RNA sequence: AGGUAGAUGCACCCUGAUUGUUAAGCCUUGAGAUACCUGGAGGGAUCUCAAGGCUUUUUAU
Numbered sequence: 001a002g003g004u005a006g007a008u009g010c011a012c013c014c015u016g017a018u019u020g021u022u023a024a025g026c027c028u029u030g031a032g033a034u035a036c037c038u039g040g041a042g043g044g045a046u047c048u049c050a051a052g053g054c055u056u057u058u059u060a061u
Stems, first nucleotide, its partner, number of pairs: 002013003026053009036043001